[Rfam]
Shown here is a 192-nucleotide sequence from Enterococcus dispar, a member of the family "Enterococcus sRNA 2410".
Produced as 2 transcripts on Northern blot. Expressed in mid, late exponential and early stationary phases of growth. Expression remained uniform under daptomycin exposure.
By type it is a small RNA.
Taxonomically the source falls in Enterococcus dispar (Bacteria, Bacillati, Enterococcaceae, Enterococcus).
On this family, see Sinel et al., Sci Rep 2017: "Small RNAs in vancomycin-resistant Enterococcus faecium involved in daptomycin response and resistance".
A search with the family's covariance model found it, with a score of 78 bits.
Pairs were carried over by alignment from the consensus structure, which was predicted with RNAfold.

RNA sequence: UUGGCUAUUUUAGAUAGUUUGUAUUCAUGAAAAACAUGGAUACAAACCAAACUGUUUGUAUCUAUGAUGGCUAAGGGAUUUUGUAAUGACUUUAAAGCCACGUAGAUCAAGAAUCUAUAGUGGCUCUUUUUAUUCCCAUCGGAAAAUAUAUUUUUUCGCAUUAGGUGUUCACUGUAGAUUGUUGUAUCUUAG
Numbered sequence: 001u002u003g004g005c006u007a008u009u010u011u012a013g014a015u016a017g018u019u020u021g022u023a024u025u026c027a028u029g030a031a032a033a034a035c036a037u038g039g040a041u042a043c044a045a046a047c048c049a050a051a052c053u054g055u056u057u058g059u060a061u062c063u064a065u066g067a068u069g070g071c072u073a074a075g076g077g078a079u080u081u082u083g084u085a086a087u088g089a090c091u092u093u094a095a096a097g098c099c100a101c102g103u104a105g106a107u108c109a110a111g112a113a114u115c116u117a118u119a120g121u122g123g124c125u126c127u128u129u130u131u132a133u134u135c136c137c138a139u140c141g142g143a144a145a146a147u148a149u150a151u152u153u154u155u156u157c158g159c160a161u162u163a164g165g166u167g168u169u170c171a172c173u174g175u176a177g178a179u180u181g182u183u184g185u186a187u188c189u190u191a192g
Stems, first nucleotide, its partner, number of pairs: 001074007011064006017047012048058004078147005084141001086139002096125006103117003148168006